[Rfam]
RNA sequence: CUACCUCUCCUUGAGGAGAGGUCAAAACUGUCUGACAGUUUUGGGUGAGGUG
Dot-bracket structure: ...(((((((....)))))))..((((((((...))))))))..........
RNA: Whalefall-1 RNA
Organism: Mariniflexile rhizosphaerae